[Rfam]
RNA sequence: GUCAAGUACCCCACGCCGAAAGGCGGGGGCUUGCAGAUGGAGUGACUUCUGCUCGUCUUCUACAAGCCCGGACUUGACCAGCCUCAGCCAGGGGGAGCAAUCCUUAUCGGGCUACGAUAUCGGUAGUGCUCAAGAACAUACCUUGGGAUACACGCCAGUCCCAGGCUCUAUAAUCGCUCAGUUAAGCAGCCAGACGGGGUUCGAGGCAGUGCUGAGAGAAUAGGCAGGCCGGUAUUAUUGGCGAGGCAAACUUUAC
Numbered sequence: 001g002u003c004a005a006g007u008a009c010c011c012c013a014c015g016c017c018g019a020a021a022g023g024c025g026g027g028g029g030c031u032u033g034c035a036g037a038u039g040g041a042g043u044g045a046c047u048u049c050u051g052c053u054c055g056u057c058u059u060c061u062a063c064a065a066g067c068c069c070g071g072a073c074u075u076g077a078c079c080a081g082c083c084u085c086a087g088c089c090a091g092g093g094g095g096a097g098c099a100a101u102c103c104u105u106a107u108c109g110g111g112c113u114a115c116g117a118u119a120u121c122g123g124u125a126g127u128g129c130u131c132a133a134g135a136a137c138a139u140a141c142c143u144u145g146g147g148a149u150a151c152a153c154g155c156c157a158g159u160c161c162c163a164g165g166c167u168c169u170a171u172a173a174u175c176g177c178u179c180a181g182u183u184a185a186g187c188a189g190c191c192a193g194a195c196g197g198g199g200u201u202c203g204a205g206g207c208a209g210u211g212c213u214g215a216g217a218g219a220a221u222a223g224g225c226a227g228g229c230c231g232g233u234a235u236u237a238u239u240g241g242c243g244a245g246g247c248a249a250a251c252u253u254u255a256c
Stems, first nucleotide, its partner, number of pairs: 001078007010029002012026001016023002030066004081242003086113004116236009138171002142165008150252001154247003174219002177216006186210002189207003193202002
HNH endonuclease-associated RNA and ORF (HEARO) RNA: a 256-nucleotide RNA from Dictyobacter vulcani. A reference for the family is Weinberg et al. (2009), "Exceptional structured noncoding RNAs revealed by bacterial metagenome analysis", Nature. Taxonomically the source falls in Dictyobacter (Bacteria, Bacillati, Chloroflexota, Ktedonobacteria). The family has 139 seed sequences and 952 matches in Rfam 15.1. A search with the family's covariance model found it, with a score of 106 bits.